[Rfam]
RNA sequence: AAAAACGUUACAAAUACUUCUUGUAUAUUUUCAGUAAUAUGGUCUGAACGUCUCUACCUAGUAGCCGUAAAAUACUAGACUACAAGAAAGUUUGAAUUAAUG
Numbered sequence: 001a002a003a004a005a006c007g008u009u010a011c012a013a014a015u016a017c018u019u020c021u022u023g024u025a026u027a028u029u030u031u032c033a034g035u036a037a038u039a040u041g042g043u044c045u046g047a048a049c050g051u052c053u054c055u056a057c058c059u060a061g062u063a064g065c066c067g068u069a070a071a072a073u074a075c076u077a078g079a080c081u082a083c084a085a086g087a088a089a090g091u092u093u094g095a096a097u098u099a100a101u102g
Stems, first nucleotide, its partner, number of pairs: 018088008030048005058078006
The record is a 102-nucleotide sequence from Peribacillus loiseleuriae, which matches "Purine riboswitch aptamer" in Rfam. The family's consensus secondary structure is taken from published work. Rfam links the family to the GO term purine nucleobase biosynthetic process. The family is grouped with related families in Rfam's "Purine riboswitches". The match comes from Rfam's covariance-model search (86 bits).